[Rfam]
RNA sequence: CUCGCUCUAACGGGGUGCCGGCUUGUUCCGGCUGAGAGGCUGACGCCAACCCGCUGAACCUGAUCCGGUUUGUACCGGCGGAGGGAUUAGACGCUUCGGAAGU
Numbered sequence: 001c002u003c004g005c006u007c008u009a010a011c012g013g014g015g016u017g018c019c020g021g022c023u024u025g026u027u028c029c030g031g032c033u034g035a036g037a038g039g040c041u042g043a044c045g046c047c048a049a050c051c052c053g054c055u056g057a058a059c060c061u062g063a064u065c066c067g068g069u070u071u072g073u074a075c076c077g078g079c080g081g082a083g084g085g086a087u088u089a090g091a092c093g094c095u096u097c098g099g100a101a102g103u
Stems, first nucleotide, its partner, number of pairs: 006091005011053004017032005039046002059084003065078004
RNA: TPP riboswitch aptamer (THI element)